[Rfam]
Rfam assigns this 68-nucleotide RNA sequence from Capitella teleta to the family "mir-2686 microRNA precursor family".
NCBI's taxonomy places the organism under Eukaryota, Opisthokonta, Bilateria, Protostomia, Capitella.
RNA sequence: UUAGUGCCUUUAUAUGGAACCAUCUAUCCUUAUAUCGAUUGGAAGAUGUUCUUUAUGUAGGCUCCUGU
Number, nucleotide and partner (000 for none) at each position: 001u000002u067003a066004g065005u000006g000007c061008c060009u059010u000011u057012a056013u055014a054015u000016g052017g051018a050019a049020c000021c048022a047023u046024c045025u044026a000027u043028c042029c041030u000031u000032a000033u000034a000035u000036c000037g000038a000039u000040u000041g029042g028043a027044a025045g024046a023047u022048g021049u019050u018051c017052u016053u000054u014055a013056u012057g011058u000059a009060g008061g007062c000063u000064c000065c004066u003067g002068u000